[Rfam]
RNA sequence: GAUUGCCGUGACGACUACGGAUAUUCAAGCUCAACAGACCGGAUCACAGAUCUGUCUUCGUGGGAUUUGUAUGUCGACCACCCCGCUGACCUGAGCAAUC
Numbered sequence: 001g002a003u004u005g006c007c008g009u010g011a012c013g014a015c016u017a018c019g020g021a022u023a024u025u026c027a028a029g030c031u032c033a034a035c036a037g038a039c040c041g042g043a044u045c046a047c048a049g050a051u052c053u054g055u056c057u058u059c060g061u062g063g064g065a066u067u068u069g070u071a072u073g074u075c076g077a078c079c080a081c082c083c084c085g086c087u088g089a090c091c092u093g094a095g096c097a098a099u100c
Base pairs, nucleotide, nucleotide: 001100002099003098004097005096006095
Rfam assigns this 100-nucleotide sequence from Zingiber officinale to the family "Small nucleolar RNA Z107/R87". By type it is a C/D-box small nucleolar RNA. The family's consensus secondary structure was predicted with RNAfold. The source organism's lineage runs through Eukaryota, Tracheophyta, Liliopsida, Petrosaviidae and Zingiber.